[Rfam]
RNA: MIR2118 microRNA precursor family
RNA sequence: GCCAGGAAGAGGAAGAAAGAGAAUCUCUAAGAGCAGUUGGAACGGGAACAUGGAGGAAAGCAUGACAACUGUCUGUUUUGUCUCAAUGUUUUCCUGAUGCCUCCCGUUCCUACAGUUCUUAGGUGCUCCUUCCUCUUCCUUAGGCCU
Dot-bracket structure: ........(((((.(((...((...(((((((((..(.(((((((((.(((.(.(((((((..........................)))))))).)))..))))))))).)..)))))))))...)).))).))))).........